[Rfam]
The record is an 86-nucleotide sequence from Clostridium acidisoli, which matches "pan motif" in Rfam.
The family's RNA type in Rfam is cis-regulatory element.
The organism belongs to Clostridium acidisoli, within Bacteria.
RNA sequence: CGGGUAGUAUCAUUUUGAACUGCACCUUUAGUGUUAAUUAUAUAGAUUAUUUUUUAUGCUCAUAUCAAUUUGAAUGGGACAUUACA
Numbered sequence: 001c002g003g004g005u006a007g008u009a010u011c012a013u014u015u016u017g018a019a020c021u022g023c024a025c026c027u028u029u030a031g032u033g034u035u036a037a038u039u040a041u042a043u044a045g046a047u048u049a050u051u052u053u054u055u056a057u058g059c060u061c062a063u064a065u066c067a068a069u070u071u072g073a074a075u076g077g078g079a080c081a082u083u084a085c086a
Base pairs, nucleotide, nucleotide: 002026003025004023005022006021007020008019010018011017056082057081058080059078060077061076062075063074065073066072067071